[Rfam]
RNA sequence: UUGUAUAUGUGUAUGUAAUUACGGGGUUCUAAGUUUUACGGGAAACUUAACCGAAAGUUUCUUAAAUAAGAAACUUUCGGUUGGGGUUCUAAGAAACUUUCGGUUGGGUUUUCCGUAAAGCUCAGAACCCCGCAAUUACAUAUACAUAUAUAA
Numbered sequence: 001u002u003g004u005a006u007a008u009g010u011g012u013a014u015g016u017a018a019u020u021a022c023g024g025g026g027u028u029c030u031a032a033g034u035u036u037u038a039c040g041g042g043a044a045a046c047u048u049a050a051c052c053g054a055a056a057g058u059u060u061c062u063u064a065a066a067u068a069a070g071a072a073a074c075u076u077u078c079g080g081u082u083g084g085g086g087u088u089c090u091a092a093g094a095a096a097c098u099u100u101c102g103g104u105u106g107g108g109u110u111u112u113c114c115g116u117a118a119a120g121c122u123c124a125g126a127a128c129c130c131c132g133c134a135a136u137u138a139c140a141u142a143u144a145c146a147u148a149u150a151u152a153a
Stems, first nucleotide, its partner, number of pairs: 001153020022132004027127004032122010070112007